[Rfam]
RNA: mir-548 microRNA precursor family
Organism: Rhinopithecus bieti
Nucleotides: 084
Stems, first nucleotide, its partner, number of pairs: 001084013015070020036049004
Number, partner (000 for none) and nucleotide at each position: 001084u002083a003082u004081u005080a006079g007078g008077u009076u010075g011074g012073u013072g014000a015070a016069a017068a018067a019066g020065u021064c022063a023062u024061u025060g026059c027058g028057g029056g030055u031054u032053u033052u034051g035000c036049c037048a038047u039046u040000a041000a042000a043000a044000c045000g046039a047038a048037u049036g050000a051034c052033a053032a054031a055030a056029u057028c058027c059026g060025c061024a062023a063022u064021g065020a066019c067018u068017u069016u070015u071000g072013c073012a074011c075010c076009a077008a078007c079006c080005u081004a082003a083002u084001a